[Rfam]
RNA sequence: GUGACAUGAUGAUUCAGUUUAUCCAUUCGCUGAGUGUGCUGCAUUGACCUUCUUACCAGGCUUUAGUUCCUGUUCUAGGAACUUAGGUCUAUGUAGUUUCCAAAUGCCUUGCAGCCUACAGUGUUCUAUUGUGGGCUGCUUGUGUGUUGGGAUUCUACUGGGAGGAAUGGUUGGUGUCAGCAGGGAUGGGUCCCAUUGGGUCCUAUCUUACCAAGAUGAGUGGUGAAAAUCUGAUCAC
Numbered sequence: 001g002u003g004a005c006a007u008g009a010u011g012a013u014u015c016a017g018u019u020u021a022u023c024c025a026u027u028c029g030c031u032g033a034g035u036g037u038g039c040u041g042c043a044u045u046g047a048c049c050u051u052c053u054u055a056c057c058a059g060g061c062u063u064u065a066g067u068u069c070c071u072g073u074u075c076u077a078g079g080a081a082c083u084u085a086g087g088u089c090u091a092u093g094u095a096g097u098u099u100c101c102a103a104a105u106g107c108c109u110u111g112c113a114g115c116c117u118a119c120a121g122u123g124u125u126c127u128a129u130u131g132u133g134g135g136c137u138g139c140u141u142g143u144g145u146g147u148u149g150g151g152a153u154u155c156u157a158c159u160g161g162g163a164g165g166a167a168u169g170g171u172u173g174g175u176g177u178c179a180g181c182a183g184g185g186a187u188g189g190g191u192c193c194c195a196u197u198g199g200g201u202c203c204u205a206u207c208u209u210a211c212c213a214a215g216a217u218g219a220g221u222g223g224u225g226a227a228a229a230u231c232u233g234a235u236c237a238c
Stems, first nucleotide, its partner, number of pairs: 010237005017230004023223007030215002034211002038181004042176008050167005056161002059090002062087004066082006093158004099152001106145002108142001111139013183209008192200002
Notes:
This 238-nucleotide RNA sequence from Dipodomys ordii belongs to the Rfam family "Small nucleolar RNA SNORD17". Taxonomically the source falls in Dipodomys (Eukaryota, Opisthokonta, Craniata, Teleostomi). Rfam describes the family as follows. The snoRNA HBI-43 belongs to the C/D family of snoRNAs, guiding 2'O-ribose methylation at position U3797 of the 28S rRNA. Pseudouridylation in position U3797 is predicted to be guided by the H/ACA snoRNA ACA48.